[Rfam]
RNA sequence: AAUGGGUUCUCGCAUUACCAGGAAGUGAAACGGGGGAACCAAAGUUUGGGGCGAACCAGCGAGAUUUGGGAUUAAAGAUUGGGGAUUAGAGAUUAUUGCAAUCUUGAUUCAAAAUUCUUGAUCGCGGAAUUUGUUGGAGAGCAUCUCUCAGCUCUAGCCCGUCAGCUAACUCCGUCAGCAUUGAGAGAGGACUG
Number, nucleotide and partner (000 for none) at each position: 001a000002a000003u029004g000005g000006g000007u000008u000009c000010u000011c000012g000013c000014a000015u000016u000017a000018c000019c000020a000021g000022g000023a000024a000025g000026u000027g000028a000029a003030a175031c174032g173033g172034g171035g170036g000037a000038a000039c000040c048041a047042a000043a000044g000045u000046u000047u041048g040049g160050g159051g158052c000053g000054a000055a000056c000057c136058a135059g134060c133061g132062a131063g130064a000065u000066u000067u000068g000069g000070g000071a000072u000073u000074a000075a000076a000077g000078a000079u000080u000081g000082g000083g000084g000085a000086u000087u000088a000089g000090a000091g000092a000093u000094u000095a000096u000097u000098g000099c000100a000101a000102u000103c000104u000105u000106g000107a000108u000109u000110c000111a000112a000113a000114a000115u000116u000117c000118u000119u000120g000121a000122u000123c000124g000125c000126g000127g000128a000129a000130u063131u062132u061133g060134u059135u058136g057137g000138a000139g154140a153141g152142c151143a000144u000145c000146u000147c000148u000149c000150a000151g142152c141153u140154c139155u000156a000157g000158c051159c050160c049161g000162u000163c000164a000165g000166c000167u000168a000169a000170c035171u034172c033173c032174g031175u030176c000177a000178g000179c000180a000181u000182u000183g000184a000185g000186a000187g000188a000189g000190g000191a000192c000193u000194g000
The family of this 194-nucleotide RNA sequence from Leptolyngbyaceae cyanobacterium JSC-12 is "c-di-AMP riboswitch aptamer (ydaO/yuaA leader)". The organism belongs to Leptolyngbyaceae, within Bacteria.